[Rfam]
RNA sequence: AGAACACACAUUAAUUAUUCCUAGGGACAUGGGAUGAACAAAAACCCUACAAAAACAAGUUAGCACGCCUUAGAAUAUUUCUAGGACGAUUACUAACCUAUGGUUGUGAUACUAGUUGAAGGGAAAAACCU
Numbered sequence: 001a002g003a004a005c006a007c008a009c010a011u012u013a014a015u016u017a018u019u020c021c022u023a024g025g026g027a028c029a030u031g032g033g034a035u036g037a038a039c040a041a042a043a044a045c046c047c048u049a050c051a052a053a054a055a056c057a058a059g060u061u062a063g064c065a066c067g068c069c070u071u072a073g074a075a076u077a078u079u080u081c082u083a084g085g086a087c088g089a090u091u092a093c094u095a096a097c098c099u100a101u102g103g104u105u106g107u108g109a110u111a112c113u114a115g116u117u118g119a120a121g122g123g124a125a126a127a128a129c130c131u
Stems, first nucleotide, its partner, number of pairs: 009121001011119006022108002025105002028102006048086001053080002057076001060073004
Rfam assigns this 131-nucleotide RNA sequence from Vitis rotundifolia to the family "MIR845_2 microRNA precursor family". It scores 111 bits against the family's covariance model. For this family Rfam cites "The grapevine genome sequence suggests ancestral hexaploidization in major angiosperm phyla" (Jaillon et al., Nature, 2007).